Rfam assigns this 158-nucleotide RNA sequence from Glycine max to the family "MIR4371 microRNA precursor family". Pairs were carried over by alignment from the consensus structure, which was predicted with RNAalifold. A search with the family's covariance model found it, with a score of 118 bits. Rfam 15.1 lists 321 matches to the family in 4 species.
[Rfam]
Nucleotides: 158
Base pairs, nucleotide, nucleotide: 001156002155003154004153005152006151007150008149009148010147011146013144014143015142016141017140018139019138022135023134024133025132026131027130028129029128030127031126032125033124034123035122036121037120038119039118040117041116042115044113049108050107051106052105054103055102056101057100058099070087071086072085073084074083
Number, partner (000 for none) and nucleotide at each position: 001156c002155u003154g004153u005152u006151a007150a008149g009148u010147g011146a012000u013144g014143g015142u016141g017140u018139g019138g020000c021000u022135g023134a024133u025132g026131g027130a028129g029128u030127g031126u032125c033124a034123c035122a036121u037120c038119a039118u040117c041116a042115u043000a044113u045000c046000c047000a048000a049108u050107c051106a052105c053000u054103g055102a056101c057100a058099u059000g060000u061000c062000a063000g064000u065000g066000c067000c068000a069000c070087g071086u072085c073084a074083u075000u076000g077000a078000a079000g080000g081000u082000g083074a084073u085072g086071a087070u088000g089000u090000g091000g092000c093000a094000a095000u096000g097000a098000g099058g100057u101056g102055u103054c104000u105052g106051u107050g108049a109000c110000a111000a112000u113044g114000c115042a116041u117040g118039a119038u120037g121036a122035u123034g124033u125032g126031g127030c128029a129028c130027u131026c132025c133024g134023u135022c136000u137000a138019u139018u140017a141016c142015g143014u144013c145000u146011u147010u148009a149008c150007u151006u152005a153004a154003c155002g156001g157000a158000a

The source organism's lineage runs through Eukaryota, Fabaceae, Phaseoleae, Glycine and Glycine subgen. Soja.
Its family is annotated with RISC complex and miRNA-mediated post-transcriptional gene silencing in the Gene Ontology.